[Rfam]
RNA sequence: GGGUCCACAGUUCACCCAGACGUUGCCGGGAGCGCAAGUUCCAAGCUGAACCUGUGA
Numbered sequence: 001g002g003g004u005c006c007a008c009a010g011u012u013c014a015c016c017c018a019g020a021c022g023u024u025g026c027c028g029g030g031a032g033c034g035c036a037a038g039u040u041c042c043a044a045g046c047u048g049a050a051c052c053u054g055u056g057a
Stems, first nucleotide, its partner, number of pairs: 001017004029042004
This 57-nucleotide RNA sequence from Ramlibacter sp. WS9 belongs to the Rfam family "COG3860 RNA". Lineage of the source: Bacteria > Pseudomonadati > Pseudomonadota > Betaproteobacteria > Ramlibacter. A search with the family's covariance model found it, with a score of 47 bits. By type it is a cis-regulatory element.